[Rfam]
RNA: mir-499 microRNA precursor family
RNA sequence: GGGAUGGAGACAGUUAAGACUUGCAGUGAUGUUUAGAGAAAUGAUCACAUGAACAUCACUUUAAGUCUGUGCUGCCUUCU
Numbered sequence: 001g002g003g004a005u006g007g008a009g010a011c012a013g014u015u016a017a018g019a020c021u022u023g024c025a026g027u028g029a030u031g032u033u034u035a036g037a038g039a040a041a042u043g044a045u046c047a048c049a050u051g052a053a054c055a056u057c058a059c060u061u062u063a064a065g066u067c068u069g070u071g072c073u074g075c076c077u078u079c080u
Stems, first nucleotide, its partner, number of pairs: 017068007026059010